[Rfam]
RNA: Z30 small nucleolar RNA
RNA sequence: AGCUAUGAUGAGCAAAGAAACAUGGCUGACUUGGUAUUGGUACCAUUGGGUAUCUCUGACCAAUGUCUGAUUGCGGUUAAUCUUCUCUCUGAGCUG
Numbered sequence: 001a002g003c004u005a006u007g008a009u010g011a012g013c014a015a016a017g018a019a020a021c022a023u024g025g026c027u028g029a030c031u032u033g034g035u036a037u038u039g040g041u042a043c044c045a046u047u048g049g050g051u052a053u054c055u056c057u058g059a060c061c062a063a064u065g066u067c068u069g070a071u072u073g074c075g076g077u078u079a080a081u082c083u084u085c086u087c088u089c090u091g092a093g094c095u096g
Stems, first nucleotide, its partner, number of pairs: 002094002039054004